The family of this 367-nucleotide sequence from Drosophila grimshawi is "Nuclear RNase P". The source organism's lineage runs through Eukaryota, Altocrustacea, Endopterygota, Brachycera and Hawaiian Drosophila. It is annotated as a ribozyme. Rfam's curators put it in the seed alignment.

Nucleotides: 367
Stems, first nucleotide, its partner, number of pairs: 001367004007361003012308001014306005021062005035050005071351005080284004153167005168183006184280007206264001309339004315333003
Number, partner (000 for none) and nucleotide at each position: 001367u002366c003365a004364g005000u006000u007361a008360c009359a010000a011000u012308c013000u014306a015305g016304c017303a018302u019000c020000u021062g022061g023060g024059g025058c026000a027000c028000a029000c030000a031000c032000a033000a034000c035050g036049a037048g038047u039046a040000u041000c042000u043000g044000a045000u046039u047038a048037c049036u050035c051000u052000a053000u054000a055000a056000a057000a058025g059024c060023c061022c062021c063000g064000g065000g066000a067000a068000g069000g070000u071351c072350u073349g074348a075347g076000a077000a078000u079000u080284g081283g082282u083281c084000a085000a086000a087000g088000c089000u090000c091000c092000c093000u094000u095000g096000u097000u098000u099000g100000u101000g102000u103000g104000c105000a106000c107000a108000a109000c110000a111000a112000g113000c114000g115000a116000u117000u118000u119000g120000c121000u122000g123000u124000u125000a126000a127000a128000g129000g130000u131000g132000a133000u134000c135000g136000u137000u138000u139000g140000u141000c142000g143000c144000g145000g146000a147000g148000u149000u150000u151000c152000a153167u154166u155165u156164c157163c158000c159000a160000g161000c162000a163157g164156g165155a166154a167153a168183c169182c170181u171180g172179u173178g174000u175000g176000a177000u178173c179172g180171c181170a182169g183168g184280g185279c186278g187277a188276a189275a190274g191000u192000a193000c194000c195000a196000g197000a198000a199000a200000u201000c202000c203000u204000g205000c206264c207000u208000c209000g210000c211000u212000g213000c214000u215000g216000u217000u218000a219000u220000u221000g222000u223000u224000a225000u226000u227000g228000u229000u230000g231000u232000u233000g234000u235000u236000g237000c238000c239000a240000a241000c242000g243000a244000c245000g246000a247000u248000g249000a250000c251000g252000a253000c254000g255000a256000c257000g258000c259000g260000c261000g262000u263000u264206g265000c266000a267000u268000u269000g270000a271000a272000a273000u274190c275189u276188u277187u278186c279185g280184u281083g282082a283081c284080c285000a286000g287000c288000a289000a290000u291000u292000u293000u294000a295000g296000u297000g298000c299000g300000a301000u302018g303017u304016g305015c306014u307000u308012g309339c310338u311337g312336c313000a314000a315333a316332u317331c318000c319000c320000u321000c322000c323000u324000c325000g326000g327000a328000g329000g330000u331317g332316g333315u334000g335000c336312g337311c338310a339309g340000a341000a342000c343000u344000c345000a346000a347075u348074u349073c350072a351071g352000a353000c354000u355000a356000a357000u358000c359009u360008g361007u362000g363000a364004c365003u366002g367001a